[Rfam]
RNA: MIR390 microRNA precursor family
Organism: Phaseolus vulgaris
RNA sequence: UGGGAGAAUCUGUAAAGCUCAGGAGGGAUAGCACCUUGAUACUGAUGAUGCUAUACAUGUUCAUAGCAGUAUAUACUUGGCGCUAUCUAUCUUGAGCUUCAUGGCUUCUUCUU
Numbered sequence: 001u002g003g004g005a006g007a008a009u010c011u012g013u014a015a016a017g018c019u020c021a022g023g024a025g026g027g028a029u030a031g032c033a034c035c036u037u038g039a040u041a042c043u044g045a046u047g048a049u050g051c052u053a054u055a056c057a058u059g060u061u062c063a064u065a066g067c068a069g070u071a072u073a074u075a076c077u078u079g080g081c082g083c084u085a086u087c088u089a090u091c092u093u094g095a096g097c098u099u100c101a102u103g104g105c106u107u108c109u110u111c112u113u
Base pairs, nucleotide, nucleotide: 010104016098017097018096019095020094021093022092023091024090026088027087028086029085030084031083032082034080035079